[Rfam]
RNA sequence: GCCGGGGUCUUUGGGGAGUAGCCCGCCGGUAGCGCAAUGCGCCGGGGCAUGCGUCAACACACUUGGGUUUCUUGAAAACCUAUGGCGUAUGCGGCUUGAAUGCUGGGCGAGACCAUUGACUGCAUGCCGAUCCAAUGGCCGGAGUCGGGGUGCAGUCAAUGCGCGUCUCAACCAAUCCGGCC
Numbered sequence: 001g002c003c004g005g006g007g008u009c010u011u012u013g014g015g016g017a018g019u020a021g022c023c024c025g026c027c028g029g030u031a032g033c034g035c036a037a038u039g040c041g042c043c044g045g046g047g048c049a050u051g052c053g054u055c056a057a058c059a060c061a062c063u064u065g066g067g068u069u070u071c072u073u074g075a076a077a078a079c080c081u082a083u084g085g086c087g088u089a090u091g092c093g094g095c096u097u098g099a100a101u102g103c104u105g106g107g108c109g110a111g112a113c114c115a116u117u118g119a120c121u122g123c124a125u126g127c128c129g130a131u132c133c134a135a136u137g138g139c140c141g142g143a144g145u146c147g148g149g150g151u152g153c154a155g156u157c158a159a160u161g162c163g164c165g166u167c168u169c170a171a172c173c174a175a176u177c178c179g180g181c182c
Base pairs, nucleotide, nucleotide: 026045027044028043047092048091049090050089051088052087053086054085055084056083064082065081066080067079068078069077070076093182094181095180096179098177099176
RNA: Manganese Mn2+ riboswitch aptamer (yybP-ykoY)